[Rfam]
RNA sequence: AGCAAAUAUCUUACAAUCAAGGAGUAAUUACUUCUUGUAUAUAUUAUGUAUUAAUCU
Numbered sequence: 001a002g003c004a005a006a007u008a009u010c011u012u013a014c015a016a017u018c019a020a021g022g023a024g025u026a027a028u029u030a031c032u033u034c035u036u037g038u039a040u041a042u043a044u045u046a047u048g049u050a051u052u053a054a055u056c057u
Stems, first nucleotide, its partner, number of pairs: 018037008
Rfam assigns this 57-nucleotide RNA sequence from Zingiber officinale to the family "Plastid-rps18 3UTR RNA". From the family's description: Plastid rps18 is a non-coding RNA (ncRNA) present in plastids. It was identified as a short stem-loop motif in the 3 prime untranslate region (3UTR) of rps18 gene. A search with the family's covariance model found it, with a score of 62 bits. By type it is a cis-regulatory element. The family's consensus secondary structure was predicted with LocARNA. The organism belongs to Zingiber, within Eukaryota.